[Rfam]
RNA sequence: CGACCAUCCCGAGCGGCCGAGUGACGUGGCACGACGACGCCGCAGCAACCCAGCGUUCCCACCUUACGGUGAGAACGGACGAGGGUGCUACCGCCACGACCGAUGGAGG
Numbered sequence: 001c002g003a004c005c006a007u008c009c010c011g012a013g014c015g016g017c018c019g020a021g022u023g024a025c026g027u028g029g030c031a032c033g034a035c036g037a038c039g040c041c042g043c044a045g046c047a048a049c050c051c052a053g054c055g056u057u058c059c060c061a062c063c064u065u066a067c068g069g070u071g072a073g074a075a076c077g078g079a080c081g082a083g084g085g086u087g088c089u090a091c092c093g094c095c096a097c098g099a100c101c102g103a104u105g106g107a108g109g
Base pairs, nucleotide, nucleotide: 001109004106005105006104007103008102013043014042015041016040017039021032022031023030027096028095029094044089045088046087047086049085050084051081054078093101
RNA: SAM riboswitch aptamer (S box leader)
Organism: Promicromonospora soli